The record is a 96-nucleotide RNA from Pengzhenrongella frigida, which matches "ZMP/ZTP riboswitch aptamer (pfl RNA motif)" in Rfam. Pairs were carried over by alignment from the consensus structure, which is taken from published work. A search with the family's covariance model found it, with a score of 60 bits. Rfam links the family to the GO terms regulation of purine nucleotide biosynthetic process and one-carbon metabolic process. The organism belongs to Pengzhenrongella, within Bacteria.

[Rfam]
Nucleotides: 096
Base pairs, nucleotide, nucleotide: 003058004057006055007054008053009052010051011050012049015046016045017084018083019082020081029042030041031040032039073091074090075089076088077087
Number, partner (000 for none) and nucleotide at each position: 001000u002000g003058u004057c005000c006055c007054g008053g009052c010051c011050g012049u013000g014000a015046c016045u017084g018083g019082c020081g021000u022000a023000c024000c025000u026000g027000a028000g029042g030041u031040g032039g033000g034000u035000u036000c037000a038000a039032c040031c041030a042029u043000c044000g045016g046015g047000g048000a049012g050011c051010g052009g053008c054007c055006g056000a057004g058003g059000u060000a061000g062000u063000c064000g065000a066000a067000g068000c069000c070000g071000g072000u073091g074090c075089g076088c077087c078000g079000u080000u081020c082019g083018c084017c085000u086000g087077g088076g089075c090074g091073c092000c093000u094000g095000g096000g